[Rfam]
RNA sequence: UGUGUCCUGGUACUUCCCACAAGCUGUAUUCUUACACUGACUGUAUGUAUAGGAAGAGGAGGCAAAGCAGACCUACCCCAUAUACAACUCAGCCCAGGCCCUUGCCUGGUCUGUAUUGUGAAUGGGGAGGGGGGG
Numbered sequence: 001u002g003u004g005u006c007c008u009g010g011u012a013c014u015u016c017c018c019a020c021a022a023g024c025u026g027u028a029u030u031c032u033u034a035c036a037c038u039g040a041c042u043g044u045a046u047g048u049a050u051a052g053g054a055a056g057a058g059g060a061g062g063c064a065a066a067g068c069a070g071a072c073c074u075a076c077c078c079c080a081u082a083u084a085c086a087a088c089u090c091a092g093c094c095c096a097g098g099c100c101c102u103u104g105c106c107u108g109g110u111c112u113g114u115a116u117u118g119u120g121a122a123u124g125g126g127g128a129g130g131g132g133g134g135g
Stems, first nucleotide, its partner, number of pairs: 002063002005060004020047002026037002029034001076127006090113003094109006